[Rfam]
RNA sequence: GAAAGCAGGCGAGGUGAUCGCAGUUGCCGCUGCUUGCAGUGGUGGCUGAGGAAAGUCCGGGCUCCCGAAUGGCCAGGCUUGCUGGGUAACGCCCAGUGCGGGUGACCGUGAGGAGAGUGCCACAGAAACACACCGCCGAUGGCCGGCUUGCCGGCACAGGCAAGGGUGCAAGGGUGCGGUAAGAGCGCACCAGCAGCAUCGAGAGGUGCUGGCUCGGUAAACCCCGGCCGGGAGCAAGGCCCAGGGACGAUGGUUGGCCAUUGACCGGUCCCGACAACAGCGCGCCGCUCGAGGCCACCGGUAACGGUGGUCCCAGACAGAUGAUCAUCCAGCGAACAGAACCCGGCUUACGUCCUGCUUUCCGCC
Dot-bracket structure: (((((((((.(.(((((((.(((((((((((......)))))))))))....[[[.[[[[[((((.....[....(((.(((((((.....)))))(((((....)))).)((...(((((...........(((((....(((((....)))))...)))..)).......((((((.......)))))).((((((((....))))))).)..)))..))))))))).))))...(((...(((((...(((((....]))))).)))))...........)))......((((((((....))))))))..........)))))))............]]]]]]]].)..)))))))))....

Rfam assigns this 366-nucleotide sequence from Synechococcus sp. RCC307 to the family "Bacterial RNase P class A". Its family is annotated with tRNA processing, dimeric ribonuclease P complex and ribonuclease P activity in the Gene Ontology. The family's RNA type in Rfam is ribozyme.